[Rfam]
RNA sequence: GGGCACUGAUGAUGAGAAUAUUCAAGUUAUCUCACGAUGGUCUGCUGAGAACACUUUGAUGCAAUAAAUAUUCUCUGAAGUCC
Dot-bracket structure: ((((............................................(((...)))......................))))
Numbered sequence: 001g002g003g004c005a006c007u008g009a010u011g012a013u014g015a016g017a018a019u020a021u022u023c024a025a026g027u028u029a030u031c032u033c034a035c036g037a038u039g040g041u042c043u044g045c046u047g048a049g050a051a052c053a054c055u056u057u058g059a060u061g062c063a064a065u066a067a068a069u070a071u072u073c074u075c076u077g078a079a080g081u082c083c
Stems, first nucleotide, its partner, number of pairs: 001083004049057003
Small nucleolar RNA Z161/Z228: an 83-nucleotide RNA from Eragrostis curvula.
Lineage of the source: Eukaryota > Streptophyta > Liliopsida > Poales > Eragrostis.
It scores 54 bits against the family's covariance model.
Pairs were carried over by alignment from the consensus structure, which was predicted with PFOLD.
Rfam classes the family as a C/D-box small nucleolar RNA.
The family is grouped with related families in Rfam's "SNORD35 clan".
Gene Ontology terms of the family: nucleolus and RNA processing.